[Rfam]
Source information: A member of the RNA family "Rhodo-rpoB RNA" from Candidatus Rhodobacter oscarellae, 93 nucleotides long. Pairs were carried over by alignment from the consensus structure, which is taken from published work. NCBI's taxonomy places the organism under Bacteria, Pseudomonadota, Alphaproteobacteria, Rhodobacterales, Rhodobacter.

RNA sequence: UGGUCGGGCGCGCAGCAUGGGCAGCUGCGCAAGGAUAGACCCCCUUUUCUGGUCUUUGAGGGAUCGCGCGCGGCUCGCCCCGCCCGUGCGCGU
Numbered sequence: 001u002g003g004u005c006g007g008g009c010g011c012g013c014a015g016c017a018u019g020g021g022c023a024g025c026u027g028c029g030c031a032a033g034g035a036u037a038g039a040c041c042c043c044c045u046u047u048u049c050u051g052g053u054c055u056u057u058g059a060g061g062g063a064u065c066g067c068g069c070g071c072g073g074c075u076c077g078c079c080c081c082g083c084c085c086g087u088g089c090g091c092g093u
Base pairs, nucleotide, nucleotide: 002041003040004039005038010030011029012028013027014026015025016024065092066091067090068089069088070087071086072085073084